Shown here is a 103-nucleotide RNA from Phaseolus vulgaris, a member of the family "Small nucleolar RNA snoR109". For this family Rfam cites "Experimental RNomics: identification of 140 candidates for small non-messenger RNAs in the plant Arabidopsis thaliana" (Marker et al., Curr Biol, 2002). The source organism's lineage runs through Eukaryota, Streptophytina, Spermatophyta, Papilionoideae and Phaseolus.
[Rfam]
RNA sequence: CGGCUGUAGCUAAAUCAAACCCACUUUAGAAGCUAACUGGCCGGUCGUUGUGAUUUCCUUUUGGAGUCUGUCAACGGAUCUGCUUACCGAGCUUCUGACAUUC
Dot-bracket structure: ..........................((((((((....(((.((((((((.....................)))).)))).))).....))))))))......